Shown here is a 116-nucleotide RNA from Rhododendron simsii, a member of the family "Small nucleolar RNA snoR100". NCBI's taxonomy places the organism under Eukaryota, Streptophyta, Streptophytina, Ericales, Rhododendron. The base pairs follow the family's consensus structure, which was predicted with WAR. A search with the family's covariance model found it, with a score of 82 bits.
RNA sequence: CAAUGAAGGCAGCAUGGUAAUGUGCACAUAAAUUGAUUUGGGUCUCUAGGCGACUAGGCCUGCCCUCUCUGAUACCAUUUGGCUUUGAUUUGGGGGCAUGGUUCUACAACAAAACA
Numbered sequence: 001c002a003a004u005g006a007a008g009g010c011a012g013c014a015u016g017g018u019a020a021u022g023u024g025c026a027c028a029u030a031a032a033u034u035g036a037u038u039u040g041g042g043u044c045u046c047u048a049g050g051c052g053a054c055u056a057g058g059c060c061u062g063c064c065c066u067c068u069c070u071g072a073u074a075c076c077a078u079u080u081g082g083c084u085u086u087g088a089u090u091u092g093g094g095g096g097c098a099u100g101g102u103u104c105u106a107c108a109a110c111a112a113a114a115c116a
Stems, first nucleotide, its partner, number of pairs: 012025004048099001050097002058089001060087001062083003